Plastid-ycf3 group II-D1 intron: a 47-nucleotide RNA from Ricinus communis.
RNA sequence: AUUCCUUACAUUGUGUAUCCACAAUUAACGCAGCCUCAGAUGCUUCA
Numbered sequence: 001a002u003u004c005c006u007u008a009c010a011u012u013g014u015g016u017a018u019c020c021a022c023a024a025u026u027a028a029c030g031c032a033g034c035c036u037c038a039g040a041u042g043c044u045u046c047a
Stems, first nucleotide, its partner, number of pairs: 010025004032044003

Gene Ontology term of the family: Group II intron splicing. The literature on the family includes a 2023 paper in Plant Commun by Richter et al., "Retrograde signaling in plants: A critical review focusing on the GUN pathway and beyond". Pairs were carried over by alignment from the consensus structure, which was predicted with LocARNA. Rfam describes the family as follows. Plastid rpl16 is a non-coding RNA (ncRNA) recognised in plastids.